[Rfam]
RNA sequence: GGCUGAUCCAAGGGCAGUGGUUUUUACAACUAAUUGAUAACAAUCAGUUACAAAUUCCAUUGUUCCUUGUCCACUCCCACUGCUUCACUUGACUAGCCUCAA
Numbered sequence: 001g002g003c004u005g006a007u008c009c010a011a012g013g014g015c016a017g018u019g020g021u022u023u024u025u026a027c028a029a030c031u032a033a034u035u036g037a038u039a040a041c042a043a044u045c046a047g048u049u050a051c052a053a054a055u056u057c058c059a060u061u062g063u064u065c066c067u068u069g070u071c072c073a074c075u076c077c078c079a080c081u082g083c084u085u086c087a088c089u090u091g092a093c094u095a096g097c098c099u100c101a102a
Stems, first nucleotide, its partner, number of pairs: 001098005007092002010090002014086001016081005028064003032060001
Shown here is a 102-nucleotide sequence from Otolemur garnettii, a member of the family "Y RNA". The family's consensus secondary structure is taken from published work. The organism belongs to Otolemur, within Eukaryota.